[Rfam]
RNA sequence: UAAAAGGGUCGGCUGGCUAAAUAUGCCACGUUGGCCCUAGUUAGGCUAGCGCUGUAUGGCAAUCAAGACAUAUGGCCGACAUAAUUUUUGGGACUCCAUAGGGUUGGCUCGCUUGGCCGACCCUCCAA
Numbered sequence: 001u002a003a004a005a006g007g008g009u010c011g012g013c014u015g016g017c018u019a020a021a022u023a024u025g026c027c028a029c030g031u032u033g034g035c036c037c038u039a040g041u042u043a044g045g046c047u048a049g050c051g052c053u054g055u056a057u058g059g060c061a062a063u064c065a066a067g068a069c070a071u072a073u074g075g076c077c078g079a080c081a082u083a084a085u086u087u088u089u090g091g092g093a094c095u096c097c098a099u100a101g102g103g104u105u106g107g108c109u110c111g112c113u114u115g116g117c118c119g120a121c122c123c124u125c126c127a128a
Stems, first nucleotide, its partner, number of pairs: 008080005014028004029051008052075007100124010
Annotation: A member of the RNA family "U11 spliceosomal RNA" from Striga asiatica, 128 nucleotides long. The family's consensus secondary structure is taken from published work.